Description:
Shown here is an 80-nucleotide RNA sequence from Callorhinchus milii, a member of the family "mir-31 microRNA precursor family". The family is grouped with related families in Rfam's "mir-31 microRNA precursor family". On this family, see Aravin et al., Dev Cell 2003: "The small RNA profile during Drosophila melanogaster development".

RNA sequence: AGCUGGAGGGAAGGCAAGAUGUUGGCAUAGCAGUUGUGCUUGGAACCUGCUAUGCCGACGUACUGCCAUCUUUCCUGUCU
Numbered sequence: 001a002g003c004u005g006g007a008g009g010g011a012a013g014g015c016a017a018g019a020u021g022u023u024g025g026c027a028u029a030g031c032a033g034u035u036g037u038g039c040u041u042g043g044a045a046c047c048u049g050c051u052a053u054g055c056c057g058a059c060g061u062a063c064u065g066c067c068a069u070c071u072u073u074c075c076u077g078u079c080u
Base pairs, nucleotide, nucleotide: 005075006074007073008072009071010070011069013067014066015065016064019061020060021059023057024056025055026054027053028052029051030050031049